RNA sequence: AAAAAGGGCUUCUGUCAUGAGAGGCACACGUAGGACAGUUUGAUUGAUCUACGUACGGAAUUGACAUCAACAGAUUUCAAAAGCAUAAUUUUUUGAUACCUGGGCAGCUAGUGAUCGUUGGUUCUCACACCUAC
Numbered sequence: 001a002a003a004a005a006g007g008g009c010u011u012c013u014g015u016c017a018u019g020a021g022a023g024g025c026a027c028a029c030g031u032a033g034g035a036c037a038g039u040u041u042g043a044u045u046g047a048u049c050u051a052c053g054u055a056c057g058g059a060a061u062u063g064a065c066a067u068c069a070a071c072a073g074a075u076u077u078c079a080a081a082a083g084c085a086u087a088a089u090u091u092u093u094u095g096a097u098a099c100c101u102g103g104g105c106a107g108c109u110a111g112u113g114a115u116c117g118u119u120g121g122u123u124c125u126c127a128c129a130c131c132u133a134c
Stems, first nucleotide, its partner, number of pairs: 008084004013026004028054007036046003057078006102132003107128001110125002113123004

This 134-nucleotide RNA from Phyllostomus discolor belongs to the Rfam family "U11 spliceosomal RNA". On this family, see Montzka and Steitz, Proc Natl Acad Sci U S A 1988: "Additional low-abundance human small nuclear ribonucleoproteins: U11, U12, etc". It scores 89 bits against the family's covariance model. The organism belongs to Phyllostomus, within Eukaryota. The family's consensus secondary structure is taken from published work. It is annotated as a spliceosomal small nuclear RNA.